RNA: THF (Tetrahydrofolate) riboswitch aptamer
Organism: Lentilactobacillus senioris
RNA sequence: AAUGGGGUAGGAUUCAAUGCGUUAAGGACCAGCGGAACGGAAUGUGAACGUUGGUAGAAGAACUUUAGGUUCGCGUCAUUGUUUUCGCAUUCACCAAU
Numbered sequence: 001a002a003u004g005g006g007g008u009a010g011g012a013u014u015c016a017a018u019g020c021g022u023u024a025a026g027g028a029c030c031a032g033c034g035g036a037a038c039g040g041a042a043u044g045u046g047a048a049c050g051u052u053g054g055u056a057g058a059a060g061a062a063c064u065u066u067a068g069g070u071u072c073g074c075g076u077c078a079u080u081g082u083u084u085u086c087g088c089a090u091u092c093a094c095c096a097a098u
Base pairs, nucleotide, nucleotide: 001098003096004095005094010086011085012084015081016080017079018078019077020075021074022073027055029054030053031052032051033050034049040092041091042090043089044088060072061071062070063069